[Rfam]
RNA sequence: CGAGACGGCUAGGCGGUCGCGUCAGUGACAGAGUUCUGUCGCUGCCGAGGAACGUCCGGGCUCCUCAGGGCAGGGUGGUUGCUAACGGCAACCCGAGGUGACUCGCGGGACAGUGCCACAGAAAACAGACCGCCGGUCUUCGGAUCGGUAAGGGUGAAACGGUGGUGUAAGAGACCACCAGCGCCGCAGGUGACUGCGGCGGCUAGGUAAACCCCACCCGGAGCAAGGUCAAGAGGAGCCGCAAGGCUCUGCGCGAAGGUUCGAGGGCGGCCCGCCCGAACCCCUCGGGGUGCCUUCGCGGGUAGACCGCUCGAGCGCGUCGGCAACGGCGCGCCUAGAUGGAUGGCCGUCCACGACAGGACCCGGCGUACCGGCCGUCUCGUCUC
Numbered sequence: 001c002g003a004g005a006c007g008g009c010u011a012g013g014c015g016g017u018c019g020c021g022u023c024a025g026u027g028a029c030a031g032a033g034u035u036c037u038g039u040c041g042c043u044g045c046c047g048a049g050g051a052a053c054g055u056c057c058g059g060g061c062u063c064c065u066c067a068g069g070g071c072a073g074g075g076u077g078g079u080u081g082c083u084a085a086c087g088g089c090a091a092c093c094c095g096a097g098g099u100g101a102c103u104c105g106c107g108g109g110a111c112a113g114u115g116c117c118a119c120a121g122a123a124a125a126c127a128g129a130c131c132g133c134c135g136g137u138c139u140u141c142g143g144a145u146c147g148g149u150a151a152g153g154g155u156g157a158a159a160c161g162g163u164g165g166u167g168u169a170a171g172a173g174a175c176c177a178c179c180a181g182c183g184c185c186g187c188a189g190g191u192g193a194c195u196g197c198g199g200c201g202g203c204u205a206g207g208u209a210a211a212c213c214c215c216a217c218c219c220g221g222a223g224c225a226a227g228g229u230c231a232a233g234a235g236g237a238g239c240c241g242c243a244a245g246g247c248u249c250u251g252c253g254c255g256a257a258g259g260u261u262c263g264a265g266g267g268c269g270g271c272c273c274g275c276c277c278g279a280a281c282c283c284c285u286c287g288g289g290g291u292g293c294c295u296u297c298g299c300g301g302g303u304a305g306a307c308c309g310c311u312c313g314a315g316c317g318c319g320u321c322g323g324c325a326a327c328g329g330c331g332c333g334c335c336u337a338g339a340u341g342g343a344u345g346g347c348c349g350u351c352c353a354c355g356a357c358a359g360g361a362c363c364c365g366g367c368g369u370a371c372c373g374g375c376c377g378u379c380u381c382g383u384c385u386c
Stems, first nucleotide, its partner, number of pairs: 001382010012351007020047002023044008052369003056366005061223004068284003073219005078092005093107001094105004108214002113212002115208003130153002132149007161179006181203001182201008227308004253299006275289005315334008
Bacterial RNase P class A: a 386-nucleotide sequence from Glycomyces buryatensis. NCBI's taxonomy places the organism under Bacteria, Bacillati, Actinomycetota, Glycomycetales, Glycomyces.